A member of the RNA family "UnaL2 LINE 3' element" from Anguilla anguilla, 54 nucleotides long. It scores 58 bits against the family's covariance model. Rfam classes the family as a cis-regulatory element.
RNA sequence: UAUGCACUUUUUUGUACGUCGCUUUGGAUAAAAGUGUCUGCCAAAUGAAUGUAA
Numbered sequence: 001u002a003u004g005c006a007c008u009u010u011u012u013u014g015u016a017c018g019u020c021g022c023u024u025u026g027g028a029u030a031a032a033a034g035u036g037u038c039u040g041c042c043a044a045a046u047g048a049a050u051g052u053a054a
Stems, first nucleotide, its partner, number of pairs: 013043001014041003020036006